Shown here is a 63-nucleotide RNA from Dendrobium falconeri, a member of the family "Plastid-clpP 5UTR RNA". The family's consensus secondary structure was predicted with LocARNA. Plastid clpP is a non-coding RNA (ncRNA) recognised in plastids. It was found in the prime untranslated region (5UTR) of a protease complex subunit (clpP) in plastids, suggesting a posible cis-regulatory function. It is one of the family's seed sequences.
[Rfam]
RNA sequence: GUUUAUAAGAACAAAGAGAAACAGAUCUUAUUCUAUACCCGAUAAGUACCAAUACGCAAUGGG
Number, nucleotide and partner (000 for none) at each position: 001g012002u011003u010004u009005a000006u000007a000008a000009g004010a003011a002012c001013a000014a000015a000016g000017a000018g000019a000020a000021a000022c000023a000024g000025a000026u000027c000028u000029u000030a000031u000032u000033c000034u000035a000036u000037a000038c063039c062040c061041g000042a000043u000044a000045a000046g055047u054048a053049c000050c000051a000052a000053u048054a047055c046056g000057c000058a000059a000060u000061g040062g039063g038